Rfam assigns this 94-nucleotide RNA sequence from Acetobacterium bakii to the family "c-di-GMP-I riboswitch aptamer". GEMM was predicted in a large-scale screen for bacterial structured RNA regulatory elements.
RNA sequence: AGGAGCAAAUAGCAAAUCAGGCGAAAACCUGUGACGCAAAACUACAGGGUCUAAGUUCAAGGUGGAAACCGGGAUAAGACAGCCAGUUGCCACA
Numbered sequence: 001a002g003g004a005g006c007a008a009a010u011a012g013c014a015a016a017u018c019a020g021g022c023g024a025a026a027a028c029c030u031g032u033g034a035c036g037c038a039a040a041a042c043u044a045c046a047g048g049g050u051c052u053a054a055g056u057u058c059a060a061g062g063u064g065g066a067a068a069c070c071g072g073g074a075u076a077a078g079a080c081a082g083c084c085a086g087u088u089g090c091c092a093c094a
Stems, first nucleotide, its partner, number of pairs: 012037002018031004040088004047084002049080003056074003